[Rfam]
RNA sequence: CGGGUGUGAGUAUUACAUCAGGUACUGGUGUAUGUUCAUUAUCAACCAGUGCUUGUGUUAUACUUUCGCUCA
Numbered sequence: 001c002g003g004g005u006g007u008g009a010g011u012a013u014u015a016c017a018u019c020a021g022g023u024a025c026u027g028g029u030g031u032a033u034g035u036u037c038a039u040u041a042u043c044a045a046c047c048a049g050u051g052c053u054u055g056u057g058u059u060a061u062a063c064u065u066u067c068g069c070u071c072a
Base pairs, nucleotide, nucleotide: 002071003070004069005068006067009064010063011062012061015058016057017056018055021053022052023051024050025049026048027047028046029045
Notes
Rfam assigns this 72-nucleotide RNA sequence from Diachasma alloeum to the family "mir-12 microRNA precursor family". A search with the family's covariance model found it, with a score of 72 bits. Taxonomically the source falls in Diachasma (Eukaryota, Bilateria, Pancrustacea, Allotriocarida). Rfam links the family to the GO terms miRNA-mediated post-transcriptional gene silencing and RISC complex. On this family, see Werren et al., Science 2010: "Functional and evolutionary insights from the genomes of three parasitoid Nasonia species".